[Rfam]
RNA: Ribosomal protein L20 leader
Organism: Sporolactobacillus laevolacticus
RNA sequence: CGAGUAAAGCAGAGGCGCCCGGCUUCUCACCUGUUCGACGCAGAAAUGCUGUUGCCAGGUAUGGAUUAUGGACUGAAUGGUUAAUGCGGGCGUUUUUACGCCCGUAUUUUUGUUUGCUC
Numbered sequence: 001c002g003a004g005u006a007a008a009g010c011a012g013a014g015g016c017g018c019c020c021g022g023c024u025u026c027u028c029a030c031c032u033g034u035u036c037g038a039c040g041c042a043g044a045a046a047u048g049c050u051g052u053u054g055c056c057a058g059g060u061a062u063g064g065a066u067u068a069u070g071g072a073c074u075g076a077a078u079g080g081u082u083a084a085u086g087c088g089g090g091c092g093u094u095u096u097u098a099c100g101c102c103c104g105u106a107u108u109u110u111u112g113u114u115u116g117c118u119c
Stems, first nucleotide, its partner, number of pairs: 011027006029060003037053003040049002085106009